[Rfam]
A member of the RNA family "MIR7724 microRNA precursor family" from Brachypodium distachyon, 169 nucleotides long. Lineage of the source: Eukaryota > Tracheophyta > Mesangiospermae > Stipodae > Brachypodium. Pairs were carried over by alignment from the consensus structure, which was predicted with RNAalifold.
RNA sequence: UUGGCAGAGAGUGAACAUGUACAUGCUGGCCAACCCAACCCCACGAUCCACCAUCGGCAUGAGCAUGAUGUGUGUUCUCAAAUGUCAGGCCAGUAAAUCACCAUGCUCGUGCUGGUAAAGGGUGGAGGGCUUGGGUUGGCCCACAUUGACAUGUUCACCCUGUGCUUGU
Numbered sequence: 001u002u003g004g005c006a007g008a009g010a011g012u013g014a015a016c017a018u019g020u021a022c023a024u025g026c027u028g029g030c031c032a033a034c035c036c037a038a039c040c041c042c043a044c045g046a047u048c049c050a051c052c053a054u055c056g057g058c059a060u061g062a063g064c065a066u067g068a069u070g071u072g073u074g075u076u077c078u079c080a081a082a083u084g085u086c087a088g089g090c091c092a093g094u095a096a097a098u099c100a101c102c103a104u105g106c107u108c109g110u111g112c113u114g115g116u117a118a119a120g121g122g123u124g125g126a127g128g129g130c131u132u133g134g135g136u137u138g139g140c141c142c143a144c145a146u147u148g149a150c151a152u153g154u155u156c157a158c159c160c161u162g163u164g165c166u167u168g169u
Base pairs, nucleotide, nucleotide: 003166004165005164006163008161009160011158012157013156014155015154016153017152018151019150020149023146024145025144028141029140030139031138032137033136034135035134036133037132038131040129041128042127044125046123047122048121049120053116054115055114056113057112058111059110060109061108062107063106064105065104066103067102070101071100072099